[Rfam]
RNA: 6C RNA
RNA sequence: GGAGCACCAGCCCCAUCCCCCCCUGGGGUUUGGCGCUUCGACGGGCCCCGCUGUCCCCCCAGCGGGGCCCGUCUCCG
Numbered sequence: 001g002g003a004g005c006a007c008c009a010g011c012c013c014c015a016u017c018c019c020c021c022c023c024u025g026g027g028g029u030u031u032g033g034c035g036c037u038u039c040g041a042c043g044g045g046c047c048c049c050g051c052u053g054u055c056c057c058c059c060c061a062g063c064g065g066g067g068c069c070c071g072u073c074u075c076c077g
Stems, first nucleotide, its partner, number of pairs: 002039002004036002007033004012028002040073013